[Rfam]
RNA sequence: UAACAUAUUUGGCAAACUUUUUGAAAAAAAAGGACGCAAAGCCAUGGGUCUAAGGGUUGAUUAUGUCUAUGACUGCCAGGUUGCCUUC
Numbered sequence: 001u002a003a004c005a006u007a008u009u010u011g012g013c014a015a016a017c018u019u020u021u022u023g024a025a026a027a028a029a030a031a032g033g034a035c036g037c038a039a040a041g042c043c044a045u046g047g048g049u050c051u052a053a054g055g056g057u058u059g060a061u062u063a064u065g066u067c068u069a070u071g072a073c074u075g076c077c078a079g080g081u082u083g084c085c086u087u088c
Base pairs, nucleotide, nucleotide: 012037013036017032018031019030020029021028022027040082041081042080043079045078046077047076048073049072050071055067056066057065
The record is an 88-nucleotide RNA sequence from Methylomusa anaerophila, which matches "c-di-GMP-I riboswitch aptamer" in Rfam. The family's consensus secondary structure is taken from published work. GEMM was predicted in a large-scale screen for bacterial structured RNA regulatory elements.